[Rfam]
RNA sequence: UGAUACGAUAUGAUGAUUUGAAAAUGCAUAGUUCAACUGAAAACUAAUGAUGACAUUACAUCAGCAAUGUCUUUCGCUCCUAUCUGAUCGUAUAU
Numbered sequence: 001u002g003a004u005a006c007g008a009u010a011u012g013a014u015g016a017u018u019u020g021a022a023a024a025u026g027c028a029u030a031g032u033u034c035a036a037c038u039g040a041a042a043a044c045u046a047a048u049g050a051u052g053a054c055a056u057u058a059c060a061u062c063a064g065c066a067a068u069g070u071c072u073u074u075c076g077c078u079c080c081u082a083u084c085u086g087a088u089c090g091u092a093u094a095u
Stems, first nucleotide, its partner, number of pairs: 004092005
A member of the RNA family "Small nucleolar RNA snR60/Z15/Z230/Z193/J17" from Thraustotheca clavata, 95 nucleotides long. The family is grouped with related families in Rfam's "SNORD77 clan". It scores 76 bits against the family's covariance model. The organism belongs to Thraustotheca, within Eukaryota.